[Rfam]
RNA sequence: AGAAUUUAACGACUCCGAGCGAAAAUGUCUAAGGUCACGACGGGUGGCUAUGAUAUUUAGCCGGGGCCCCAGGGGAAACGCUGGGACCUUCCAUUUUUGAAAAGGGGUUCUUUGCUGGCGCAA
Number, nucleotide and partner (000 for none) at each position: 001a000002g000003a000004a116005u000006u114007u000008a000009a000010c000011g109012a108013c107014u106015c105016c104017g000018a000019g061020c060021g000022a058023a000024a057025a056026u055027g054028u053029c052030u000031a000032a000033g049034g048035u047036c046037a045038c044039g000040a000041c000042g000043g000044g038045u037046g036047g035048c034049u033050a000051u000052g029053a028054u027055a026056u025057u024058u022059a000060g020061c019062c000063g000064g089065g088066g087067c000068c085069c084070c083071a082072g081073g000074g079075g000076a000077a000078a000079c074080g000081c072082u071083g070084g069085g068086a000087c066088c065089u064090u100091c099092c000093a000094u000095u000096u000097u000098u000099g091100a090101a000102a000103a000104g016105g015106g014107g013108u012109u011110c000111u000112u000113u000114g006115c000116u004117g000118g000119c000120g000121c000122a000123a000
RNA: Molybdenum/Tungsten riboswitch aptamer (Moco RNA motif)